[Rfam]
RNA sequence: UCCCGGACAACGCCGAGUCCUGCCCCGUUCAGGGAGCGUCCCGUGACCCGGACACAGGGGCAGGAGUGGGGGACCCACAGGUUCCACGCGAGGUCGGUCGAGAGGCCGUCCCGCUCGGGGUGAAGUCAUCAUGCGAUGGCAGGACACUUUCCAGUCCCAACCCGACAGCUCACCUCACAGGCGUGGGAAAGGAAACCC
Numbered sequence: 001u002c003c004c005g006g007a008c009a010a011c012g013c014c015g016a017g018u019c020c021u022g023c024c025c026c027g028u029u030c031a032g033g034g035a036g037c038g039u040c041c042c043g044u045g046a047c048c049c050g051g052a053c054a055c056a057g058g059g060g061c062a063g064g065a066g067u068g069g070g071g072g073a074c075c076c077a078c079a080g081g082u083u084c085c086a087c088g089c090g091a092g093g094u095c096g097g098u099c100g101a102g103a104g105g106c107c108g109u110c111c112c113g114c115u116c117g118g119g120g121u122g123a124a125g126u127c128a129u130c131a132u133g134c135g136a137u138g139g140c141a142g143g144a145c146a147c148u149u150u151c152c153a154g155u156c157c158c159a160a161c162c163c164g165a166c167a168g169c170u171c172a173c174c175u176c177a178c179a180g181g182c183g184u185g186g187g188a189a190a191g192g193a194a195a196c197c198c
Stems, first nucleotide, its partner, number of pairs: 011183004018065009066178006076117001118163003126139004142157004